This 117-nucleotide RNA sequence from Polaromonas sp. OV174 belongs to the Rfam family "ALIL pseudoknot". Rfam links the family to the GO term positive regulation of translational frameshifting. Taxonomically the source falls in Polaromonas (Bacteria, Pseudomonadota, Burkholderiales, Comamonadaceae). A search with the family's covariance model found it, with a score of 113 bits.

[Rfam]
RNA sequence: CGCGUUUUUCGCCCAGGCGGAGCUCGACCGCCGACUGAAGUCUUGAGGACCUUCAUCGAUCAGCACCGCCACACGCAUGGGGUCGAGCCGAUCUGCAAGGUGCUGCAGAUUGCCCCG
Numbered sequence: 001c002g003c004g005u006u007u008u009u010c011g012c013c014c015a016g017g018c019g020g021a022g023c024u025c026g027a028c029c030g031c032c033g034a035c036u037g038a039a040g041u042c043u044u045g046a047g048g049a050c051c052u053u054c055a056u057c058g059a060u061c062a063g064c065a066c067c068g069c070c071a072c073a074c075g076c077a078u079g080g081g082g083u084c085g086a087g088c089c090g091a092u093c094u095g096c097a098a099g100g101u102g103c104u105g106c107a108g109a110u111u112g113c114c115c116c117g
Stems, first nucleotide, its partner, number of pairs: 016032005078117005089112002092109006